The record is a 303-nucleotide RNA sequence from Arachis duranensis, which matches "Plant signal recognition particle RNA" in Rfam. Its Rfam clan is "SRP clan".
RNA sequence: GCCGAGUUAGGUAGCACUAACUUGUAACCCAAGUGGGGGCCCUAAGGUGAUGGAACAUGGUUCUGGCUAUGCUUGGUUGGGUUGGUGGCUGCAUCAUUCUGGCUUGCCCACUCCAAGUUGAGAGUUGAGUUAGGGCGCCUGGGCGAAGGCUCGAGUGUCCUGUCUCCUAGACUUGAGGGCACUGCGUCAGGCUGGCUUCACAGAGCAGCGAACACCUCUGGUUCCCAACAGUGGAGGGAUCACAAGCCGGUGCACAACUAGCCUGCAGUGCCAAGCGUGCCUAGCUCUUGAACCAUCACCUUU
Numbered sequence: 001g002c003c004g005a006g007u008u009a010g011g012u013a014g015c016a017c018u019a020a021c022u023u024g025u026a027a028c029c030c031a032a033g034u035g036g037g038g039g040c041c042c043u044a045a046g047g048u049g050a051u052g053g054a055a056c057a058u059g060g061u062u063c064u065g066g067c068u069a070u071g072c073u074u075g076g077u078u079g080g081g082u083u084g085g086u087g088g089c090u091g092c093a094u095c096a097u098u099c100u101g102g103c104u105u106g107c108c109c110a111c112u113c114c115a116a117g118u119u120g121a122g123a124g125u126u127g128a129g130u131u132a133g134g135g136c137g138c139c140u141g142g143g144c145g146a147a148g149g150c151u152c153g154a155g156u157g158u159c160c161u162g163u164c165u166c167c168u169a170g171a172c173u174u175g176a177g178g179g180c181a182c183u184g185c186g187u188c189a190g191g192c193u194g195g196c197u198u199c200a201c202a203g204a205g206c207a208g209c210g211a212a213c214a215c216c217u218c219u220g221g222u223u224c225c226c227a228a229c230a231g232u233g234g235a236g237g238g239a240u241c242a243c244a245a246g247c248c249g250g251u252g253c254a255c256a257a258c259u260a261g262c263c264u265g266c267a268g269u270g271c272c273a274a275g276c277g278u279g280c281c282u283a284g285c286u287c288u289u290g291a292a293c294c295a296u297c298a299c300c301u302u303u
Base pairs, nucleotide, nucleotide: 001040002039003038004023005022006021007020008019009018010017028037029036030035044302045301046300047299048298049297050296051295052294053293056290057289059288060287062284065281066280067279069278070277071276072275073274074273075272076271077270079264080263081262082261083260084259085258086257090254091253099250100249101248102247103246104245105244106243108238109237111236112235113234114233115232117229118228119227120226122224123223124222125221127166128165129164131162132161133160134159135158136157137156138155140153141152142151143150144149173220175218176217177216178215183212185210186209187208192203193202194201
By type it is a non-coding RNA gene.